[Rfam]
RNA: U12 minor spliceosomal RNA
Organism: Pyrus ussuriensis x Pyrus communis
RNA sequence: UUGCCUUAAACUAAUGAGUAAGGAAAACAAAGCGAGCGGUGAGAGCCGGUCGCAGCGCAAAGCACAGAACAGCGCAAGAAUUUAUGGAGGGGUUAUAGGCUGGCCGAGUGUCGAUGCUGUUACUUUGCAGAACUCACUCGUGCGGGCCUCCC
Numbered sequence: 001u002u003g004c005c006u007u008a009a010a011c012u013a014a015u016g017a018g019u020a021a022g023g024a025a026a027a028c029a030a031a032g033c034g035a036g037c038g039g040u041g042a043g044a045g046c047c048g049g050u051c052g053c054a055g056c057g058c059a060a061a062g063c064a065c066a067g068a069a070c071a072g073c074g075c076a077a078g079a080a081u082u083u084a085u086g087g088a089g090g091g092g093u094u095a096u097a098g099g100c101u102g103g104c105c106g107a108g109u110g111u112c113g114a115u116g117c118u119g120u121u122a123c124u125u126u127g128c129a130g131a132a133c134u135c136a137c138u139c140g141u142g143c144g145g146g147c148c149u150c151c152c
Base pairs, nucleotide, nucleotide: 004023005022006021007020008019032053033052034051035050037048038047039046055075056074057073058072091152092151097149098148099147100146101145103143105140106139108137109136110135117130118129119128120127